[Rfam]
A member of the RNA family "MIR397 microRNA precursor family" from Gossypium anomalum, 86 nucleotides long.
The source organism's lineage runs through Eukaryota, Viridiplantae, Gunneridae, malvids and Gossypium.
It scores 63 bits against the family's covariance model.
Rfam 15.1 lists 496 matches to the family in 218 species.
RNA sequence: CGAAGAAAUAUUGUUGAGUGCAGCGUUGAUGAGCUUUUUUUUCUGUUUUGAUGAGUUCAUCAACACUGCACUCAACGAUGUUUCUU
Numbered sequence: 001c002g003a004a005g006a007a008a009u010a011u012u013g014u015u016g017a018g019u020g021c022a023g024c025g026u027u028g029a030u031g032a033g034c035u036u037u038u039u040u041u042u043c044u045g046u047u048u049u050g051a052u053g054a055g056u057u058c059a060u061c062a063a064c065a066c067u068g069c070a071c072u073c074a075a076c077g078a079u080g081u082u083u084c085u086u
Stems, first nucleotide, its partner, number of pairs: 006083006013076011025064004030059006